The record is a 117-nucleotide RNA sequence from Streptomyces sp. AVP053U2, which matches "SAM (S-adenosyl methionine) riboswitch aptamer" in Rfam. Rfam describes the family as follows. SAM-IV is a mRNA element that regulates gene expression via direct sensing of S-adenosylmethionine (SAM or AdoMet). SAM-IV riboswitches share conserved nucleotide positions with the previously described SAM-I riboswitches sequence analysis and molecular recognition experiments suggest that SAM-I and SAM-IV riboswitches share similar ligand binding sites, but have different scaffolds. NCBI's taxonomy places the organism under Bacteria, Bacillati, Actinomycetes, Kitasatosporales, Streptomyces. A reference for the family is Weinberg et al. (2008), "The aptamer core of SAM-IV riboswitches mimics the ligand-binding site of SAM-I riboswitches", RNA. The family's consensus secondary structure is taken from published work.
RNA sequence: GGUCAUGAGCGACAGCCAUCAGGCCCCGGCCGGCUGUCCGGCAACCCUCCGUCCGUGGCGGGGUGCCCCGGGUGAGGACCAGGCCGUGAGCAGCAGGGCUCGCGGCAAGCGCGGACC
Numbered sequence: 001g002g003u004c005a006u007g008a009g010c011g012a013c014a015g016c017c018a019u020c021a022g023g024c025c026c027c028g029g030c031c032g033g034c035u036g037u038c039c040g041g042c043a044a045c046c047c048u049c050c051g052u053c054c055g056u057g058g059c060g061g062g063g064u065g066c067c068c069c070g071g072g073u074g075a076g077g078a079c080c081a082g083g084c085c086g087u088g089a090g091c092a093g094c095a096g097g098g099c100u101c102g103c104g105g106c107a108a109g110c111g112c113g114g115a116c117c
Stems, first nucleotide, its partner, number of pairs: 001080004009039001011038006022031002040067003045063003049058002083106009